[Rfam]
RNA sequence: GGCCUUCUCUUGCAUGAGACCUCCAGCCGCUUGGGCCUUGAACUACCUGACUCACCUUCCCCUGAGUCAGGCAGACAAGGGCCCGGAGCGGAUGGGGAUCUGAUUCAAGAAGUGGCCGCAG
Numbered sequence: 001g002g003c004c005u006u007c008u009c010u011u012g013c014a015u016g017a018g019a020c021c022u023c024c025a026g027c028c029g030c031u032u033g034g035g036c037c038u039u040g041a042a043c044u045a046c047c048u049g050a051c052u053c054a055c056c057u058u059c060c061c062c063u064g065a066g067u068c069a070g071g072c073a074g075a076c077a078a079g080g081g082c083c084c085g086g087a088g089c090g091g092a093u094g095g096g097g098a099u100c101u102g103a104u105u106c107a108a109g110a111a112g113u114g115g116c117c118g119c120a121g
Base pairs, nucleotide, nucleotide: 010108011107012106014104015103018100019099021097022096023095024094025093027091028090029089030088031086032085033084034083036079038077046071047070048069049068050067051066052065053064

Rfam assigns this 121-nucleotide sequence from Arthrobacter pigmenti to the family "mraW RNA". Pairs were carried over by alignment from the consensus structure, which is taken from published work. NCBI's taxonomy places the organism under Bacteria, Actinomycetota, Actinomycetes, Micrococcaceae, Arthrobacter.